The record is a 92-nucleotide RNA sequence from Megalops atlanticus, which matches "mir-1388 microRNA precursor family" in Rfam.
On this family, see Soares et al., BMC Genomics 2009: "Parallel DNA pyrosequencing unveils new zebrafish microRNAs".
The family's consensus secondary structure was predicted with RNAalifold.
The family has 12 seed sequences and 600 matches in Rfam 15.1.
Rfam links the family to the GO terms miRNA-mediated post-transcriptional gene silencing and RISC complex.
The organism belongs to Megalops, within Eukaryota.
[Rfam]
RNA sequence: GUCAGAGUGGCUCUUCCAGGACUGUCCAACCUGAGAAUGGUGAAAGGUGUGGUCAAUCUCAGGUUUGUCAGCCCAAGAAGCACCGUCUCGGU
Numbered sequence: 001g002u003c004a005g006a007g008u009g010g011c012u013c014u015u016c017c018a019g020g021a022c023u024g025u026c027c028a029a030c031c032u033g034a035g036a037a038u039g040g041u042g043a044a045a046g047g048u049g050u051g052g053u054c055a056a057u058c059u060c061a062g063g064u065u066u067g068u069c070a071g072c073c074c075a076a077g078a079a080g081c082a083c084c085g086u087c088u089c090g091g092u
Stems, first nucleotide, its partner, number of pairs: 005089003008085003013080004019074002022071003026067001028065009038055002